[Rfam]
Description: Rfam assigns this 84-nucleotide RNA sequence from Paraburkholderia sacchari to the family "Burkholderia sRNA 25". The base pairs follow the family's consensus structure, which was predicted with RNAfold. The match comes from Rfam's covariance-model search (93 bits). Rfam's curators write: Identified by RNA-seq, RACE and Northern blot. Strongly expressed in biofilm. By type it is a small RNA. The literature on the family includes a 2017 paper in Sci Rep by Sass et al., "Identification of small RNAs abundant in Burkholderia cenocepacia biofilms reveal putative regulators with a potential role in carbon and iron metabolism".
Nucleotides: 084
Stems, first nucleotide, its partner, number of pairs: 001018007019038008056076008
Number, partner (000 for none) and nucleotide at each position: 001018g002017c003016u004015g005014c006013u007012u008000u009000u010000c011000g012007a013006a014005g015004u016003g017002g018001c019038c020037u021036u022035u023034u024033u025032c026031g027000u028000u029000g030000a031026c032025g033024a034023a035022a036021a037020a038019g039000a040000u041000c042000u043000c044000c045000a046000a047000a048000c049000c050000u051000u052000u053000g054000u055000c056076g057075g058074c059073g060072c061071g062070g063069c064000u065000a066000c067000u068000u069063g070062c071061c072060g073059c074058g075057c076056u077000c078000u079000u080000u081000u082000u083000u084000u